A member of the RNA family "LOOT RNA", 128 nucleotides long.
RNA sequence: UGCCUAAACUCUAAAGCAAUUUAAGGCAUGGUGUGCACAAAACGGAUUAAGUGUAAUGGUGGUCAGACACCUUGCUUACUUAAUCCGUCAUAGCCGAAAGGCUAUGGGCAAGUCCGAAAGGACAAGCC
Numbered sequence: 001u002g003c004c005u006a007a008a009c010u011c012u013a014a015a016g017c018a019a020u021u022u023a024a025g026g027c028a029u030g031g032u033g034u035g036c037a038c039a040a041a042a043c044g045g046a047u048u049a050a051g052u053g054u055a056a057u058g059g060u061g062g063u064c065a066g067a068c069a070c071c072u073u074g075c076u077u078a079c080u081u082a083a084u085c086c087g088u089c090a091u092a093g094c095c096g097a098a099a100g101g102c103u104a105u106g107g108g109c110a111a112g113u114c115c116g117a118a119a120g121g122a123c124a125a126g127c128c
Stems, first nucleotide, its partner, number of pairs: 001033004009026002012023004043087011058071004089106007107128003112123004